S15-Flavobacteria ribosomal protein leader: a 65-nucleotide RNA sequence from Sinomicrobium soli. Lineage of the source: Bacteria > Pseudomonadati > Flavobacteriales > Flavobacteriaceae > Sinomicrobium. The family's consensus secondary structure is taken from published work. Clan: Ribosomal Protein S15 Leader clan.
[Rfam]
RNA sequence: UAUAUUUGCGCCCUGCCAGAAAACCUGGCACAAUACAUAAGAAUCAUUUAAACAAUAUUGGCAUG
Numbered sequence: 001u002a003u004a005u006u007u008g009c010g011c012c013c014u015g016c017c018a019g020a021a022a023a024c025c026u027g028g029c030a031c032a033a034u035a036c037a038u039a040a041g042a043a044u045c046a047u048u049u050a051a052a053c054a055a056u057a058u059u060g061g062c063a064u065g
Stems, first nucleotide, its partner, number of pairs: 014030006